The record is a 111-nucleotide RNA from Glaciihabitans tibetensis, which matches "TPP riboswitch aptamer (THI element)" in Rfam.
RNA sequence: UGAGGUGAACACGGGAGUCCGGUGAGCCGGGCUGAGAGGAAGCUUCUCCAAGCUUCGACCGUCGAACCUGAUCUGGAUAAUGCCAGCGCAGGGAGGCAAUCUCUUAUAACC
Numbered sequence: 001u002g003a004g005g006u007g008a009a010c011a012c013g014g015g016a017g018u019c020c021g022g023u024g025a026g027c028c029g030g031g032c033u034g035a036g037a038g039g040a041a042g043c044u045u046c047u048c049c050a051a052g053c054u055u056c057g058a059c060c061g062u063c064g065a066a067c068c069u070g071a072u073c074u075g076g077a078u079a080a081u082g083c084c085a086g087c088g089c090a091g092g093g094a095g096g097c098a099a100u101c102u103c104u105u106a107u108a109a110c111c
Stems, first nucleotide, its partner, number of pairs: 006099001010095001011062004017032005039056007067092004073086004

Record summary:
A search with the family's covariance model found it, with a score of 58 bits.